[Rfam]
RNA sequence: ACGCCCCUGCCGGCAGCGCGCCAAGAGGAGCCGGGACUCCAGGCGCCCCCAUCUCGCUGCCGGAUGGUCUUUGGAACCGAGGCGUCAUG
Numbered sequence: 001a002c003g004c005c006c007c008u009g010c011c012g013g014c015a016g017c018g019c020g021c022c023a024a025g026a027g028g029a030g031c032c033g034g035g036a037c038u039c040c041a042g043g044c045g046c047c048c049c050c051a052u053c054u055c056g057c058u059g060c061c062g063g064a065u066g067g068u069c070u071u072u073g074g075a076a077c078c079g080a081g082g083c084g085u086c087a088u089g
Base pairs, nucleotide, nucleotide: 001085002084003083004082005081010063011062012061013060015058016057017056018055020053027048028046030044031043032042034040065079066078067077
A member of the RNA family "dauA ncRNA motif" from Streptomyces sviceus, 89 nucleotides long. By type it is a cis-regulatory element. Rfam describes the family as follows. dauA ncRNA motif was reported as a strong cis regulatory motif candidate, with potential to be a cis regulatory riboswitch type, it have been identified in genomes of the genus Streptomyces. On this family, see Narunsky et al., Nucleic Acids Res 2024: "The discovery of novel noncoding RNAs in 50 bacterial genomes". Pairs were carried over by alignment from the consensus structure, which is taken from published work.